[Rfam]
Shown here is a 54-nucleotide RNA sequence from Merluccius polli, a member of the family "UnaL2 LINE 3' element". Rfam 15.1 lists 493,311 matches to the family in 99 species. NCBI's taxonomy places the organism under Eukaryota, Gnathostomata, Osteoglossocephalai, Neoteleostei, Merluccius. A search with the family's covariance model found it, with a score of 56 bits. Pairs were carried over by alignment from the consensus structure, which is taken from published work. A reference for the family is Baba et al. (2004), "Solution structure of an RNA stem-loop derived from the 3' conserved region of eel LINE UnaL2", RNA.
RNA sequence: AAAUGUACUUAUUGUAAGUCGCUUUGGACAAAAGCGUCUGUUAAAUGCCCUAAA
Numbered sequence: 001a002a003a004u005g006u007a008c009u010u011a012u013u014g015u016a017a018g019u020c021g022c023u024u025u026g027g028a029c030a031a032a033a034g035c036g037u038c039u040g041u042u043a044a045a046u047g048c049c050c051u052a053a054a
Stems, first nucleotide, its partner, number of pairs: 013043001014041003020036006